[Rfam]
RNA sequence: GGCGGUCUUCGGUAGUGGCUGCCGGGCACCCCGGAUCUGGGGAAAGUCCGGCCGCUUCGAUCGACGGCCGUA
Numbered sequence: 001g002g003c004g005g006u007c008u009u010c011g012g013u014a015g016u017g018g019c020u021g022c023c024g025g026g027c028a029c030c031c032c033g034g035a036u037c038u039g040g041g042g043a044a045a046g047u048c049c050g051g052c053c054g055c056u057u058c059g060a061u062c063g064a065c066g067g068c069c070g071u072a
Stems, first nucleotide, its partner, number of pairs: 002071006009064005017056003021052007029042004